The family of this 75-nucleotide RNA from Dactylosporangium sucinum is "tRNA".
[Rfam]
RNA sequence: GCGGUAGUAGCUCAGUCAGGUCAGAGCAUCGCCUUGCCAUGGCGAAGGUCCCGGGUUCGAAUCCCGGUUGCCGCU
Numbered sequence: 001g002c003g004g005u006a007g008u009a010g011c012u013c014a015g016u017c018a019g020g021u022c023a024g025a026g027c028a029u030c031g032c033c034u035u036g037c038c039a040u041g042g043c044g045a046a047g048g049u050c051c052c053g054g055g056u057u058c059g060a061a062u063c064c065c066g067g068u069u070g071c072c073g074c075u
Base pairs, nucleotide, nucleotide: 001074002073003072004071005070006069007068010027011026012025013024029045030044031043032042033041051067052066053065054064055063
Lineage of the source: Bacteria > Actinomycetota > Micromonosporales > Micromonosporaceae > Dactylosporangium. The family's RNA type in Rfam is transfer RNA.